[Rfam]
RNA sequence: CCUCUGGAGUGUCACAUCAACGCUAGUUAGCUUUGGCGAAAGCGGACACGUAUGAAUGAGGAA
Numbered sequence: 001c002c003u004c005u006g007g008a009g010u011g012u013c014a015c016a017u018c019a020a021c022g023c024u025a026g027u028u029a030g031c032u033u034u035g036g037c038g039a040a041a042g043c044g045g046a047c048a049c050g051u052a053u054g055a056a057u058g059a060g061g062a063a
Base pairs, nucleotide, nucleotide: 001061002060003059004058009049010048011047012046013045021044022043023042030037031036
The record is a 63-nucleotide sequence, which matches "RAGATH-18 RNA" in Rfam. The family's consensus secondary structure is taken from published work.